Rfam assigns this 413-nucleotide part of an RNA from Plasmodiophora brassicae to the family "Eukaryotic large subunit ribosomal RNA". The sequence is in the family's curated seed alignment.

RNA sequence: GUAUGGCGACUAGUACUGGCGCCGAACGCUAGCCGGCUGUGCUGUCUGCCGCGGCGUCCGCCGGAUUGCAAUGCUUCCGCGGGCGCUCGCGUCGACGGGCAGUGCGCUGGCCCAUGUCGUUCGGGUUGGCCUAGGUCAGAAUGGGUUCGCGGCGGCCGACAAAGGCGCCGGCAAGGUUCGAGCGCGCCCGUCGCGCUCGGCUUAUAGGCCGGCGUCCAGAUCGCCGCUGUCGCGGACCGAGGUGUCGAAACGUGCGCUCUCAGCUGUUGGUGUCGGUGUCGCUGCGUGCGCGGGCGCGCCCGGGGAGCAAAGCUCCGCGGCGUGUCCCGCGUCGUACGCCGGUGCCUGACCCAUUCCCGUUCACGUUCGCGAUUCUGACGAAAUGGUCGUCAUUCACCCGUCUUGAAACACGG
Numbered sequence: 001g002u003a004u005g006g007c008g009a010c011u012a013g014u015a016c017u018g019g020c021g022c023c024g025a026a027c028g029c030u031a032g033c034c035g036g037c038u039g040u041g042c043u044g045u046c047u048g049c050c051g052c053g054g055c056g057u058c059c060g061c062c063g064g065a066u067u068g069c070a071a072u073g074c075u076u077c078c079g080c081g082g083g084c085g086c087u088c089g090c091g092u093c094g095a096c097g098g099g100c101a102g103u104g105c106g107c108u109g110g111c112c113c114a115u116g117u118c119g120u121u122c123g124g125g126u127u128g129g130c131c132u133a134g135g136u137c138a139g140a141a142u143g144g145g146u147u148c149g150c151g152g153c154g155g156c157c158g159a160c161a162a163a164g165g166c167g168c169c170g171g172c173a174a175g176g177u178u179c180g181a182g183c184g185c186g187c188c189c190g191u192c193g194c195g196c197u198c199g200g201c202u203u204a205u206a207g208g209c210c211g212g213c214g215u216c217c218a219g220a221u222c223g224c225c226g227c228u229g230u231c232g233c234g235g236a237c238c239g240a241g242g243u244g245u246c247g248a249a250a251c252g253u254g255c256g257c258u259c260u261c262a263g264c265u266g267u268u269g270g271u272g273u274c275g276g277u278g279u280c281g282c283u284g285c286g287u288g289c290g291c292g293g294g295c296g297c298g299c300c301c302g303g304g305g306a307g308c309a310a311a312g313c314u315c316c317g318c319g320g321c322g323u324g325u326c327c328c329g330c331g332u333c334g335u336a337c338g339c340c341g342g343u344g345c346c347u348g349a350c351c352c353a354u355u356c357c358c359g360u361u362c363a364c365g366u367u368c369g370c371g372a373u374u375c376u377g378a379c380g381a382a383a384u385g386g387u388c389g390u391c392a393u394u395c396a397c398c399c400g401u402c403u404u405g406a407a408a409c410a411c412g413g
Stems, first nucleotide, its partner, number of pairs: 001395001003393010017133001021131001023129001025127002137377006398413004
Dot-bracket structure: (.((((((((((....(...(.(.((...................................................................................................)).).).)...((((((.....................................................................................................................................................................................................................................))))))......)))))))))).)..((((........))))